RNA sequence: UGGUAGAUGCACCUUAAUCUUCAACUCCCUAGUCGGUUCAAGCCGACUGGGGAUUUUCUUG
Numbered sequence: 001u002g003g004u005a006g007a008u009g010c011a012c013c014u015u016a017a018u019c020u021u022c023a024a025c026u027c028c029c030u031a032g033u034c035g036g037u038u039c040a041a042g043c044c045g046a047c048u049g050g051g052g053a054u055u056u057u058c059u060u061g
Stems, first nucleotide, its partner, number of pairs: 002013003026053011
RNA: Nitrogen stress-induced RNA 1